RNA sequence: GCAUCUAUGGGUUAGUGGUAUACUGCUCGCUUGCCAUUUCAUGCACUGACCACAAGUGCGCGGAAUCAACUUGCGGGCGACACGGGUUCGAUUCCCGUUGGAUGCA
Numbered sequence: 001g002c003a004u005c006u007a008u009g010g011g012u013u014a015g016u017g018g019u020a021u022a023c024u025g026c027u028c029g030c031u032u033g034c035c036a037u038u039u040c041a042u043g044c045a046c047u048g049a050c051c052a053c054a055a056g057u058g059c060g061c062g063g064a065a066u067c068a069a070c071u072u073g074c075g076g077g078c079g080a081c082a083c084g085g086g087u088u089c090g091a092u093u094c095c096c097g098u099u100g101g102a103u104g105c106a
Base pairs, nucleotide, nucleotide: 001105002104003103004102005101006100007099010024011023012022026077027076028075029074030073082098083097084096085095086094